A member of the RNA family "Flavo-1 RNA" from Pedobacter psychrophilus, 81 nucleotides long. Pairs were carried over by alignment from the consensus structure, which is taken from published work. The organism belongs to Pedobacter, within Bacteria. The match comes from Rfam's covariance-model search (44 bits).
RNA sequence: GUUUUGCGUUAGGGAUUGAAACGGCAGCUUUUUUGUCCGCCAGCUGGCGGACAAAAACUAAAGUGUAAAGCCCGCCCGAAC
Numbered sequence: 001g002u003u004u005u006g007c008g009u010u011a012g013g014g015a016u017u018g019a020a021a022c023g024g025c026a027g028c029u030u031u032u033u034u035g036u037c038c039g040c041c042a043g044c045u046g047g048c049g050g051a052c053a054a055a056a057a058c059u060a061a062a063g064u065g066u067a068a069a070g071c072c073c074g075c076c077c078g079a080a081c
Stems, first nucleotide, its partner, number of pairs: 012073003016069002021064002026059002029056001032054002035052006